[Rfam]
RNA sequence: GGUCCUGGCUAGCUUUGCAGGGUGGGCAGUCAGCCUGUGUCUGUAAGGAGCAGCUGUGCAAACCCAUGCAAAGCUGACCACGUCC
Dot-bracket structure: ...(.(((.((((((((((((.(..(((...(((..................))).))).)..)).)))))))))).))).)...
About this RNA: mir-19 microRNA precursor family: an 85-nucleotide RNA sequence from Takifugu flavidus. Clan: mir-19 clan. The source organism's lineage runs through Eukaryota, Neopterygii, Euacanthomorphacea, Tetraodontidae and Takifugu. For this family Rfam cites "Embryonic stem cell-specific MicroRNAs" (Houbaviy et al., Dev Cell, 2003). Gene Ontology terms of the family: RISC complex and miRNA-mediated post-transcriptional gene silencing.